Shown here is an 88-nucleotide sequence from Melghiribacillus thermohalophilus, a member of the family "c-di-GMP-I riboswitch aptamer".
Rfam's curators write: GEMM was predicted in a large-scale screen for bacterial structured RNA regulatory elements. Genes associated with GEMM are involved in a diverse array of functions, including chemotaxis regulation, signal transduction, secretion and chitin.
RNA sequence: UUCCGAUAAAGGCAAACCUAUCGAAAGAUAGGGACGCAAAGCUACGGACCUAAGGCAAAUUGUUUGCUAAGGCCGCCGGGUUACCGAA
Numbered sequence: 001u002u003c004c005g006a007u008a009a010a011g012g013c014a015a016a017c018c019u020a021u022c023g024a025a026a027g028a029u030a031g032g033g034a035c036g037c038a039a040a041g042c043u044a045c046g047g048a049c050c051u052a053a054g055g056c057a058a059a060u061u062g063u064u065u066g067c068u069a070a071g072g073c074c075g076c077c078g079g080g081u082u083a084c085c086g087a088a
Stems, first nucleotide, its partner, number of pairs: 012037002017032006040082004045078003049072002055067004